[Rfam]
Selenocysteine transfer RNA: a 91-nucleotide RNA from Actinophytocola sp. Pairs were carried over by alignment from the consensus structure, which is taken from published work. A search with the family's covariance model found it, with a score of 73 bits.

Nucleotides: 091
Base pairs, nucleotide, nucleotide: 001091002090003089004088005087006086007085011026012025013024014023015022016021028044029043030042031041032040047065048064049063050062051061068082069081070080071079
Number, partner (000 for none) and nucleotide at each position: 001091g002090g003089a004088g005087g006086u007085g008000u009000u010000u011026g012025u013024c014023g015022g016021c017000u018000g019000g020000u021016g022015c023014c024013g025012g026011c027000c028044g029043c030042g031041g032040c033000c034000u035000u036000c037000a038000a039000a040032g041031c042030c043029g044028u045000u046000g047065g048064a049063u050062g051061c052000g053000u054000g055000g056000u057000g058000a059000a060000c061051g062050c063049g064048u065047u066000g067000g068082c069081g070080g071079g072000u073000u074000c075000g076000a077000u078000u079071c080070c081069c082068g083000u084000c085007c086006g087005c088004c089003u090002c091001c